Rfam assigns this 170-nucleotide sequence from Medicago truncatula to the family "MIR2619 microRNA precursor family". Gene Ontology terms of the family: miRNA-mediated post-transcriptional gene silencing and RISC complex. The source organism's lineage runs through Eukaryota, Streptophytina, Spermatophyta, Gunneridae and Medicago. It scores 122 bits against the family's covariance model.

RNA sequence: AAAUCGCCCCCUAAGUUUUGCAUCUGUGGCAGUUUUGGCUCCCAAGGCCAAUUUUGACUUGAUCUACGCUGACGUGGCACCCUAAGUGAGGUGCCACGUGUUAUUUUUUUAAUCAAAAAUUGACUUUGGGGGCCAAAACUGAUACAGUUGCAAAACUUAGGGGGCGGUUU
Numbered sequence: 001a002a003a004u005c006g007c008c009c010c011c012u013a014a015g016u017u018u019u020g021c022a023u024c025u026g027u028g029g030c031a032g033u034u035u036u037g038g039c040u041c042c043c044a045a046g047g048c049c050a051a052u053u054u055u056g057a058c059u060u061g062a063u064c065u066a067c068g069c070u071g072a073c074g075u076g077g078c079a080c081c082c083u084a085a086g087u088g089a090g091g092u093g094c095c096a097c098g099u100g101u102u103a104u105u106u107u108u109u110u111a112a113u114c115a116a117a118a119a120u121u122g123a124c125u126u127u128g129g130g131g132g133c134c135a136a137a138a139c140u141g142a143u144a145c146a147g148u149u150g151c152a153a154a155a156c157u158u159a160g161g162g163g164g165c166g167g168u169u170u
Stems, first nucleotide, its partner, number of pairs: 001170002004167005012159011024147005030141016072099002075096007